RNA sequence: CGUCCCUGACCUGGGUAGAGUGGCACCUGGUUGGUGGCGCCUGUCUCAUAUCAGUGAGGGACAAAACAACUCCUUGUUUAUCCCAGCUUGGCUUUUGCUCUGUGCCCAUGCCUGGUUCAUGCCCUGGACACAUGG
Number, nucleotide and partner (000 for none) at each position: 001c000002g062003u061004c060005c059006c058007u057008g000009a000010c000011c054012u053013g052014g051015g000016u000017a000018g047019a046020g045021u000022g041023g040024c039025a000026c037027c036028u000029g000030g000031u000032u000033g000034g000035u000036g027037g026038c000039g024040c023041c022042u000043g000044u000045c020046u019047c018048a000049u000050a000051u014052c013053a012054g011055u000056g000057a007058g006059g005060g004061a003062c002063a000064a000065a000066a000067c000068a000069a000070c000071u000072c000073c000074u000075u130076g129077u128078u127079u126080a125081u000082c000083c000084c000085a000086g000087c000088u000089u000090g123091g122092c121093u000094u000095u000096u119097g118098c000099u000100c115101u114102g113103u000104g111105c110106c000107c000108a000109u000110g105111c104112c000113u102114g101115g100116u000117u000118c097119a096120u000121g092122c091123c090124c000125u080126g079127g078128a077129c076130a075131c000132a000133u000134g000135g000
A member of the RNA family "Small nucleolar RNA SNORA48" from Bos taurus, 135 nucleotides long.
Taxonomically the source falls in Bos (Eukaryota, Eumetazoa, Craniata, Sarcopterygii).
From the family's description: The snoRNA ACA 48 has been identified to guide pseudouridylation of the residue U3797 in the 28S rRNA subunit.
Its Rfam clan is "SNORA48 clan".
A reference for the family is Ofengand and Bakin (1997), "Mapping to nucleotide resolution of pseudouridine residues in large subunit ribosomal RNAs from representative eukaryotes, prokaryotes, archaebacteria, mitochondria and chloroplasts", J Mol Biol.
Gene Ontology terms of the family: RNA processing and nucleolus.